Shown here is a 151-nucleotide sequence from Geotrypetes seraphini, a member of the family "U12 minor spliceosomal RNA". The pairing is the family consensus, mapped onto this sequence. Rfam classes the family as a spliceosomal small nuclear RNA. Clan: U2 clan.
[Rfam]
RNA sequence: AUGCCUUAAACUAAUGAGUAAGGAAAAUAACGAUUCGGGGUGACGCCCGAGUCCUCACCACUUAUGUGAGAAGAAUUUUUGAACGGGUACAGGUCGCCCUUUGGAGUGACCCGCUUACUUUGCGGGAUGCCCAGUUGCAGUGAUCUGCCCG
Numbered sequence: 001a002u003g004c005c006u007u008a009a010a011c012u013a014a015u016g017a018g019u020a021a022g023g024a025a026a027a028u029a030a031c032g033a034u035u036c037g038g039g040g041u042g043a044c045g046c047c048c049g050a051g052u053c054c055u056c057a058c059c060a061c062u063u064a065u066g067u068g069a070g071a072a073g074a075a076u077u078u079u080u081g082a083a084c085g086g087g088u089a090c091a092g093g094u095c096g097c098c099c100u101u102u103g104g105a106g107u108g109a110c111c112c113g114c115u116u117a118c119u120u121u122g123c124g125g126g127a128u129g130c131c132c133a134g135u136u137g138c139a140g141u142g143a144u145c146u147g148c149c150c151g
Stems, first nucleotide, its partner, number of pairs: 004023005032053008054070005084151005091146007101134001104132001106130003110126005